c-di-AMP riboswitch aptamer (ydaO/yuaA leader): a 158-nucleotide sequence from Symplocastrum torsivum. A search with the family's covariance model found it, with a score of 62 bits.

RNA sequence: ACAUUCACUAAACUGUAAUGCGAUCGCUGGAGCGGAGGAACCAAAUUUUGGGGCUUAUUUCUGACCUUGUGUCUUCUUAAAGUAGGAGACAAAGAAGAAAGGGACAUCUCUCAGUCCUAGCCCGUCAGCUAACUUCGUAGGCAUUGAGAGGAGACUGA
Numbered sequence: 001a002c003a004u005u006c007a008c009u010a011a012a013c014u015g016u017a018a019u020g021c022g023a024u025c026g027c028u029g030g031a032g033c034g035g036a037g038g039a040a041c042c043a044a045a046u047u048u049u050g051g052g053g054c055u056u057a058u059u060u061c062u063g064a065c066c067u068u069g070u071g072u073c074u075u076c077u078u079a080a081a082g083u084a085g086g087a088g089a090c091a092a093a094g095a096a097g098a099a100a101g102g103g104a105c106a107u108c109u110c111u112c113a114g115u116c117c118u119a120g121c122c123c124g125u126c127a128g129c130u131a132a133c134u135u136c137g138u139a140g141g142c143a144u145u146g147a148g149a150g151g152a153g154a155c156u157g158a
Base pairs, nucleotide, nucleotide: 013141014140019031021029032138033137034136035135036134037133042050043049051123052122053121059099060098061097062096102117103116104115105114